[Rfam]
RNA sequence: UGUCAUAAACCCGUAGAUCCGAUCUUGUGGUCAUUUUAGCCACGCAAGCUCGUUUCUAUGGGUGUCUGUCUC
Numbered sequence: 001u002g003u004c005a006u007a008a009a010c011c012c013g014u015a016g017a018u019c020c021g022a023u024c025u026u027g028u029g030g031u032c033a034u035u036u037u038a039g040c041c042a043c044g045c046a047a048g049c050u051c052g053u054u055u056c057u058a059u060g061g062g063u064g065u066c067u068g069u070c071u072c
Stems, first nucleotide, its partner, number of pairs: 002070001004068002007065001010062003015057003020052003024048006
Description: A member of the RNA family "mir-10 microRNA precursor family" from Scleropages formosus, 72 nucleotides long. It scores 63 bits against the family's covariance model. The base pairs follow the family's consensus structure, which was predicted with PFOLD. On this family, see Lee and Ambros, Science 2001: "An extensive class of small RNAs in Caenorhabditis elegans".